Background
Rfam assigns this 74-nucleotide sequence from Erinaceus europaeus to the family "Small nucleolar RNA SNORD66". The organism belongs to Erinaceus, within Eukaryota. A reference for the family is Huttenhofer et al. (2001), "RNomics: an experimental approach that identifies 201 candidates for novel, small, non-messenger RNAs in mouse", EMBO J. The match comes from Rfam's covariance-model search (88 bits). Rfam classes the family as a C/D-box small nucleolar RNA. snoRNA HBII-142 is part of the C/D family of snoRNAs. It is the human orthologue of the mouse MBII-142 snoRNA and is predicted to guide 2'O-ribose methylation of small 18S rRNA at residue C1272.
[Rfam]
RNA sequence: UUCCACUGAUGACACUUUUAGUGCCACGUGUUUGGGCCACUGAGACCCCAUGAUGGAACUGAGGAGCUGAGGAA
Numbered sequence: 001u002u003c004c005a006c007u008g009a010u011g012a013c014a015c016u017u018u019u020a021g022u023g024c025c026a027c028g029u030g031u032u033u034g035g036g037c038c039a040c041u042g043a044g045a046c047c048c049c050a051u052g053a054u055g056g057a058a059c060u061g062a063g064g065a066g067c068u069g070a071g072g073a074a
Base pairs, nucleotide, nucleotide: 001074002073003072004071